[Rfam]
RNA sequence: AACCACACUAUCAAUAAAUGGAUUCACCCGUGAUACGACGUGGUUGUUCCACUUAGGAUGAGGACGCGGCAUCUUAUUACCCGCCGUCGCACGAAAUUAAUAAGAUGUCACAUCCUCAUUUUAGGUAAAACAACCACGUCAUCUCAUAAAAGAAUCCAUUCAUUGAUAGUGUGGUU
Dot-bracket structure: (((((((.(((((((.(((.(((((....((((.(.(((.((((((((..((.((.((....((....(((((((((((......((........)))))))))))))....))....)).)).))..)))))))).))).).))))....))))).))).))))))).)))))))
RNA: MIR807 microRNA precursor family